[Rfam]
RNA sequence: UUCUUUAAAAUUAUUAACGGUUACUUAUCAUAUUUUGAUUCGUCAAUGACAAUAAGAUUUCAUCUUCCAUGGAUUCGAAAUCCAAUUCAGAACAUGACAUAUGAUAAUUAUCAUUU
Numbered sequence: 001u002u003c004u005u006u007a008a009a010a011u012u013a014u015u016a017a018c019g020g021u022u023a024c025u026u027a028u029c030a031u032a033u034u035u036u037g038a039u040u041c042g043u044c045a046a047u048g049a050c051a052a053u054a055a056g057a058u059u060u061c062a063u064c065u066u067c068c069a070u071g072g073a074u075u076c077g078a079a080a081u082c083c084a085a086u087u088c089a090g091a092a093c094a095u096g097a098c099a100u101a102u103g104a105u106a107a108u109u110a111u112c113a114u115u116u
Stems, first nucleotide, its partner, number of pairs: 020105004026099001029096003033092004038086003
The family of this 116-nucleotide RNA from Glycine soja is "MIR1520 microRNA precursor family". It scores 59 bits against the family's covariance model. Rfam 15.1 lists 1,934 matches to the family in 15 species. Its family is annotated with miRNA-mediated post-transcriptional gene silencing and RISC complex in the Gene Ontology. The family's consensus secondary structure was predicted with RNAalifold. Taxonomically the source falls in Glycine subgen. Soja (Eukaryota, Embryophyta, Euphyllophyta, rosids).